This 88-nucleotide sequence belongs to the Rfam family "freshwater-2 RNA". Rfam's curators put it in the seed alignment. Rfam classes the family as a cis-regulatory element.
RNA sequence: GACUUCAUGUCGAAGUCUUAUGCAGUAAUAACCCACUGCGUACCGGAUAGAACCCGGAUUGGACUUCUAAAAUAGGAGAAAAAAAAUG
Numbered sequence: 001g002a003c004u005u006c007a008u009g010u011c012g013a014a015g016u017c018u019u020a021u022g023c024a025g026u027a028a029u030a031a032c033c034c035a036c037u038g039c040g041u042a043c044c045g046g047a048u049a050g051a052a053c054c055c056g057g058a059u060u061g062g063a064c065u066u067c068u069a070a071a072a073u074a075g076g077a078g079a080a081a082a083a084a085a086a087u088g
Stems, first nucleotide, its partner, number of pairs: 001017005019042007043057004